[Rfam]
RNA sequence: GUCGACGGGGAUCGACUCCGGCCAGCGCGUUGCGCCCGCCGGAGCCGUCGCG
Number, nucleotide and partner (000 for none) at each position: 001g000002u000003c000004g000005a000006c000007g000008g000009g000010g000011a000012u000013c000014g000015a000016c044017u043018c042019c041020g040021g039022c038023c000024a000025g035026c034027g033028c032029g000030u000031u000032g028033c027034g026035c025036c000037c000038g022039c021040c020041g019042g018043a017044g016045c000046c000047g000048u000049c000050g000051c000052g000